Source information:
The family of this 70-nucleotide sequence from Gulo gulo is "Small nucleolar RNA SNORD45". Rfam links the family to the GO terms nucleolus and RNA processing. Rfam 15.1 lists 1,629 matches to the family in 521 species. A search with the family's covariance model found it, with a score of 56 bits.
RNA sequence: GGUCAGUGAUAUGAUGGCCUGUGUUACCUGAACCCAAAAUUGAUGUGAAUUCCAAAAUGACAGAGGCCCA
Numbered sequence: 001g002g003u004c005a006g007u008g009a010u011a012u013g014a015u016g017g018c019c020u021g022u023g024u025u026a027c028c029u030g031a032a033c034c035c036a037a038a039a040u041u042g043a044u045g046u047g048a049a050u051u052c053c054a055a056a057a058u059g060a061c062a063g064a065g066g067c068c069c070a
Base pairs, nucleotide, nucleotide: 001068002067003066004065